[Rfam]
RNA: ZMP/ZTP riboswitch aptamer (pfl RNA motif)
Organism: Streptomyces seoulensis
RNA sequence: GUCGUGGGCCGUGACUGGCGCGCUGGGAUGGGAUGGACCAUCGGGGAGCGGCCCGGGAGUCAGUGCCGUGCGCCUGGGCCGAACCG
Numbered sequence: 001g002u003c004g005u006g007g008g009c010c011g012u013g014a015c016u017g018g019c020g021c022g023c024u025g026g027g028a029u030g031g032g033a034u035g036g037a038c039c040a041u042c043g044g045g046g047a048g049c050g051g052c053c054c055g056g057g058a059g060u061c062a063g064u065g066c067c068g069u070g071c072g073c074c075u076g077g078g079c080c081g082a083a084c085c086g
Stems, first nucleotide, its partner, number of pairs: 003057001005055008015045002017074005028041004065079003